[Rfam]
RNA: L31-Actinobacteria ribosomal protein leader
RNA sequence: GGGGUUCCGGUUCACGCCUUGACCACAUCAGUGGGGCGACCCGGCGACC
Number, nucleotide and partner (000 for none) at each position: 001g000002g000003g049004g048005u047006u000007c044008c043009g042010g041011u000012u000013c000014a000015c038016g037017c036018c035019u034020u033021g000022a000023c000024c000025a000026c000027a000028u000029c000030a000031g000032u000033g020034g019035g018036g017037c016038g015039a000040c000041c010042c009043g008044g007045c000046g000047a005048c004049c003